[Rfam]
RNA sequence: AAUGCAAGUGGCCUUAUCGCUCCAUAAUAUUAUGGGGAGGAAAGUCCGGGCAACACAGGGCGUCGUACUUCCUAACGGGAAGGCUUCUGAGAGGUUAAGCGAUCAGAAGACAGAAAGUGCCACAGAAAAUAUACCGCUUCCUUUGGGAGUAAGGGUGAAAUGGCGAGGUAAGAGCUCACCGCGUUCUGAGUGAUCAGAAUGGCAGGGUAAACCUUACGAGUUGAAAGACCAAAUAAGCAGGCGCAGCCAGCCUUGGCUGGCGAAAGGGCUGCUCGUCUGAGUCUGCGGGUAGGUCGAUGGAGCUUUUUUGCAAAAAAGGGCCUAGAUAAAUGAUGAGGGUUCCAGCUUGCUGGAAAACAGAACCCGGCUUAUAAACUUGCAUUUUCU
Numbered sequence: 001a002a003u004g005c006a007a008g009u010g011g012c013c014u015u016a017u018c019g020c021u022c023c024a025u026a027a028u029a030u031u032a033u034g035g036g037g038a039g040g041a042a043a044g045u046c047c048g049g050g051c052a053a054c055a056c057a058g059g060g061c062g063u064c065g066u067a068c069u070u071c072c073u074a075a076c077g078g079g080a081a082g083g084c085u086u087c088u089g090a091g092a093g094g095u096u097a098a099g100c101g102a103u104c105a106g107a108a109g110a111c112a113g114a115a116a117g118u119g120c121c122a123c124a125g126a127a128a129a130u131a132u133a134c135c136g137c138u139u140c141c142u143u144u145g146g147g148a149g150u151a152a153g154g155g156u157g158a159a160a161u162g163g164c165g166a167g168g169u170a171a172g173a174g175c176u177c178a179c180c181g182c183g184u185u186c187u188g189a190g191u192g193a194u195c196a197g198a199a200u201g202g203c204a205g206g207g208u209a210a211a212c213c214u215u216a217c218g219a220g221u222u223g224a225a226a227g228a229c230c231a232a233a234u235a236a237g238c239a240g241g242c243g244c245a246g247c248c249a250g251c252c253u254u255g256g257c258u259g260g261c262g263a264a265a266g267g268g269c270u271g272c273u274c275g276u277c278u279g280a281g282u283c284u285g286c287g288g289g290u291a292g293g294u295c296g297a298u299g300g301a302g303c304u305u306u307u308u309u310g311c312a313a314a315a316a317a318g319g320g321c322c323u324a325g326a327u328a329a330a331u332g333a334u335g336a337g338g339g340u341u342c343c344a345g346c347u348u349g350c351u352g353g354a355a356a357a358c359a360g361a362a363c364c365c366g367g368c369u370u371a372u373a374a375a376c377u378u379g380c381a382u383u384u385u386c387u
Base pairs, nucleotide, nucleotide: 001383002382003381004380005379006378007377008376009375011372012338013337014336015335016334017333018332020037021036022035023034024033025032026031042370043369044368046367047366048365049364050363051223052222053221054220058274059273060272061271063219064218065217066216067215068082069081070080071079072078083111084109085108086107087106088105089104090103112214113213117212118211119208120207121206134154135153136150137149138148139147140146141145162180163179165177166176167175181203182201183200184199185198186197187196188195189194227295228294229293230292237286238285239284240283241282242281266278267277268276269275302321303320304319305318306317307316308315309314

This 387-nucleotide RNA sequence from marine bacterium AO1-C belongs to the Rfam family "Bacterial RNase P class A". The organism belongs to Cytophagaceae, within Bacteria. Ribonuclease P (RNase P) is a ubiquitous endoribonuclease, found in archaea, bacteria and eukarya as well as chloroplasts and mitochondria. The family's RNA type in Rfam is ribozyme. The match comes from Rfam's covariance-model search (281 bits).